A member of the RNA family "Small nucleolar RNA snoR2/U65" from Zea mays, 171 nucleotides long. The base pairs follow the family's consensus structure, which was predicted with WAR.
[Rfam]
RNA sequence: GGUCUGAUGCCACAUCGCUAGUAGCUACAAGCCUACAAGCUUUGACUAGAGAUGCUAUGACAAGCUUUGACUAGAGAUGCUAUGACUAAUACAAAGUUGUUUUACAUGUUGAUAGGAACAUGGGCAUGGCUUCUACGUCUGUCCAUGGAGCCAGUUUCAGUGAUCAUAUUC
Numbered sequence: 001g002g003u004c005u006g007a008u009g010c011c012a013c014a015u016c017g018c019u020a021g022u023a024g025c026u027a028c029a030a031g032c033c034u035a036c037a038a039g040c041u042u043u044g045a046c047u048a049g050a051g052a053u054g055c056u057a058u059g060a061c062a063a064g065c066u067u068u069g070a071c072u073a074g075a076g077a078u079g080c081u082a083u084g085a086c087u088a089a090u091a092c093a094a095a096g097u098u099g100u101u102u103u104a105c106a107u108g109u110u111g112a113u114a115g116g117a118a119c120a121u122g123g124g125c126a127u128g129g130c131u132u133c134u135a136c137g138u139c140u141g142u143c144c145a146u147g148g149a150g151c152c153a154g155u156u157u158c159a160g161u162g163a164u165c166a167u168a169u170u171c
Stems, first nucleotide, its partner, number of pairs: 002086003009083001013079004018074001020072003024065003102163004115152002120146001122144005
It is annotated as an H/ACA-box small nucleolar RNA.
Its family is annotated with RNA processing and nucleolus in the Gene Ontology.